[Rfam]
RNA sequence: ACCAUCCUUUCCUUGGGGUUGCACUACUGUCUAAUGAGUGCAUAAUGAGGGGCAGUACUGCUCAUGCCUAUACAUCGCAUCUGUGUCCACUGGAACUUCGCUUUACCUUGGUACAAUUUUUGGAAAA
Numbered sequence: 001a002c003c004a005u006c007c008u009u010u011c012c013u014u015g016g017g018g019u020u021g022c023a024c025u026a027c028u029g030u031c032u033a034a035u036g037a038g039u040g041c042a043u044a045a046u047g048a049g050g051g052g053c054a055g056u057a058c059u060g061c062u063c064a065u066g067c068c069u070a071u072a073c074a075u076c077g078c079a080u081c082u083g084u085g086u087c088c089a090c091u092g093g094a095a096c097u098u099c100g101c102u103u104u105a106c107c108u109u110g111g112u113a114c115a116a117u118u119u120u121u122g123g124a125a126a127a
Stems, first nucleotide, its partner, number of pairs: 006018004021061003026056007038046002083114005091105004096100001
The family of this 127-nucleotide RNA sequence from Callithrix jacchus is "U4atac minor spliceosomal RNA".
A search with the family's covariance model found it, with a score of 85 bits.
Rfam links the family to the GO terms pre-mRNA 5'-splice site binding, mRNA 5'-splice site recognition and spliceosomal tri-snRNP complex assembly.
By type it is a spliceosomal small nuclear RNA.
Lineage of the source: Eukaryota > Opisthokonta > Eumetazoa > Bilateria > Callithrix.